[Rfam]
RNA sequence: GCCGAGGUGGCGGAAUUGGCAGACGCAUCGGACUUAAAAUCCGGUGGGCUUUUAUGCCCGUGUCGGUUCGAACCCGACCCUCGGUA
Numbered sequence: 001g002c003c004g005a006g007g008u009g010g011c012g013g014a015a016u017u018g019g020c021a022g023a024c025g026c027a028u029c030g031g032a033c034u035u036a037a038a039a040u041c042c043g044g045u046g047g048g049c050u051u052u053u054a055u056g057c058c059c060g061u062g063u064c065g066g067u068u069c070g071a072a073c074c075c076g077a078c079c080c081u082c083g084g085u086a
Stems, first nucleotide, its partner, number of pairs: 001085007010026003028044005062078005
RNA: tRNA
Organism: Orenia marismortui